Nucleotides: 083
Stems, first nucleotide, its partner, number of pairs: 013046001015044004021083007029039002050072006
Number, partner (000 for none) and nucleotide at each position: 001000g002000u003000u004000g005000g006000c007000c008000g009000c010000a011000u012000g013046g014000a015044g016043g017042c018041c019000a020000u021083a022082g023081c024080a025079g026078a027077a028000a029039c030038a031000u032000u033000c034000a035000u036000g037000u038030u039029g040000c041018g042017g043016c044015c045000a046013c047000u048000g049000u050072c051071a052070g053069g054068u055067a056000g057000c058000a059000c060000c061000u062000g063000g064000u065000a066000a067055u068054a069053c070052c071051u072050g073000c074000a075000a076000a077027u078026u079025c080024u081023g082022c083021u